Rfam assigns this 76-nucleotide sequence from Hibiscus syriacus to the family "Small nucleolar RNA snoR14". The family is grouped with related families in Rfam's "SNORD110 clan". The organism belongs to Hibiscus, within Eukaryota. The match comes from Rfam's covariance-model search (50 bits). By type it is a C/D-box small nucleolar RNA. On this family, see Brown et al., RNA 2001: "Multiple snoRNA gene clusters from Arabidopsis".
RNA sequence: GCGAUGUGAUGACAGAAAUUCAAUGGACUGAUCUAAAAACUUGAUGUACAUUGAAGUUCCGACAGGUUUUGAUUGC
Number, nucleotide and partner (000 for none) at each position: 001g076002c075003g074004a073005u000006g000007u000008g000009a000010u000011g000012a000013c000014a000015g000016a000017a000018a000019u000020u000021c000022a000023a000024u000025g000026g000027a000028c000029u000030g000031a000032u000033c000034u000035a000036a000037a000038a000039a000040c000041u000042u000043g000044a000045u000046g000047u000048a000049c000050a000051u000052u000053g000054a000055a000056g000057u000058u000059c000060c000061g000062a000063c000064a000065g000066g000067u000068u000069u000070u000071g000072a000073u004074u003075g002076c001